Record summary:
This 94-nucleotide RNA from Vibrio astriarenae belongs to the Rfam family "Qrr RNA". The family's consensus secondary structure is taken from published work. By type it is a small RNA. Rfam 15.1 lists 148 matches to the family in 70 species. Its family is annotated with quorum sensing in the Gene Ontology.
[Rfam]
RNA sequence: CGACCCGCAAGGGUCACCUAGCCAACUGACGUUGUUAGUGAAAAGUUUUUUCACAAAUAGAGCCAAUAGCUUUUUUGCUAUUGGCUAUUUUUUU
Dot-bracket structure: .(((((....)))))................((((..(((((((...)))))))..))))..((((((((......))))))))..........